[Rfam]
RNA sequence: GUCCUCUCAGCUCCGCUUAACCACACGGGUCCGGCGUGUGCUUGGCCCUGUUUUCAGGGAGGCAGAGAAACGGGCUCUCCUAAUGCACGACAGACCUGCCCAGCAUGGCCUCUCCUGGUUCCAGGAGUGCGACAGAC
Numbered sequence: 001g002u003c004c005u006c007u008c009a010g011c012u013c014c015g016c017u018u019a020a021c022c023a024c025a026c027g028g029g030u031c032c033g034g035c036g037u038g039u040g041c042u043u044g045g046c047c048c049u050g051u052u053u054u055c056a057g058g059g060a061g062g063c064a065g066a067g068a069a070a071c072g073g074g075c076u077c078u079c080c081u082a083a084u085g086c087a088c089g090a091c092a093g094a095c096c097u098g099c100c101c102a103g104c105a106u107g108g109c110c111u112c113u114c115c116u117g118g119u120u121c122c123a124g125g126a127g128u129g130c131g132a133c134a135g136a137c
Stems, first nucleotide, its partner, number of pairs: 002067001004065002007062002011059003015055001019043002022040005077127005085120001092116001093114002098109003